[Rfam]
RNA sequence: GAUGUUGAUGACGUAUAGAUUAAGACUUUCAUUCUUCUGAGAAAUUACAAAUGUGGAAUUCAUACGGGGACCUGAACUGAACAAG
Numbered sequence: 001g002a003u004g005u006u007g008a009u010g011a012c013g014u015a016u017a018g019a020u021u022a023a024g025a026c027u028u029u030c031a032u033u034c035u036u037c038u039g040a041g042a043a044a045u046u047a048c049a050a051a052u053g054u055g056g057a058a059u060u061c062a063u064a065c066g067g068g069g070a071c072c073u074g075a076a077c078u079g080a081a082c083a084a085g
Stems, first nucleotide, its partner, number of pairs: 003083004

Small nucleolar RNA Z159/U59: an 85-nucleotide RNA from Hevea brasiliensis. NCBI's taxonomy places the organism under Eukaryota, Tracheophyta, Spermatophyta, Gunneridae, Hevea. The base pairs follow the family's consensus structure, which was predicted with PFOLD. The literature on the family includes a 2003 paper in Nucleic Acids Res by Chen et al., "The high diversity of snoRNAs in plants: identification and comparative study of 120 snoRNA genes from Oryza sativa".